Background: A member of the RNA family "Small nucleolar RNA SNORD75" from Upupa epops, 62 nucleotides long. The base pairs follow the family's consensus structure, which was predicted with RNAalifold. Its family is annotated with RNA processing and nucleolus in the Gene Ontology. The literature on the family includes a 1998 paper in Mol Cell Biol by Smith and Steitz, "Classification of gas5 as a multi-small-nucleolar-RNA (snoRNA) host gene and a member of the 5'-terminal oligopyrimidine gene family reveals common features of snoRNA host genes". The source organism's lineage runs through Eukaryota, Craniata, Saurischia, Coelurosauria and Upupa.
RNA sequence: AGCCUGUGAUGGUACAAGAGUAGUGGUCAGAAGCUUAUUUCUGAAAUCGCUGUGCUGAGGCU
Dot-bracket structure: ((((......................................................))))
Numbered sequence: 001a002g003c004c005u006g007u008g009a010u011g012g013u014a015c016a017a018g019a020g021u022a023g024u025g026g027u028c029a030g031a032a033g034c035u036u037a038u039u040u041c042u043g044a045a046a047u048c049g050c051u052g053u054g055c056u057g058a059g060g061c062u
Stems, first nucleotide, its partner, number of pairs: 001062004